[Rfam]
RNA sequence: GUAUUCUUGCGGCCAUGAACUGCAUCCUGUCUGCCCUCCGACGUCGCCGCUCGCCCCAUCUCUAGGGCCUGGCUACUCGCGGACGCGCGUUGCAUUCUCAACGCACAGCAAGUUCGAAUCACGAAAGCCACGGCCAGUCCGUGGCUUUUUG
Numbered sequence: 001g002u003a004u005u006c007u008u009g010c011g012g013c014c015a016u017g018a019a020c021u022g023c024a025u026c027c028u029g030u031c032u033g034c035c036c037u038c039c040g041a042c043g044u045c046g047c048c049g050c051u052c053g054c055c056c057c058a059u060c061u062c063u064a065g066g067g068c069c070u071g072g073c074u075a076c077u078c079g080c081g082g083a084c085g086c087g088c089g090u091u092g093c094a095u096u097c098u099c100a101a102c103g104c105a106c107a108g109c110a111a112g113u114u115c116g117a118a119u120c121a122c123g124a125a126a127g128c129c130a131c132g133g134c135c136a137g138u139c140c141g142u143g144g145c146u147u148u149u150u151g
Stems, first nucleotide, its partner, number of pairs: 007117002010089002014087001020085001031082003039079003043076002046073002049068002054065001124148010
RNA: Burkholderia sRNA 7
Organism: Paraburkholderia acidiphila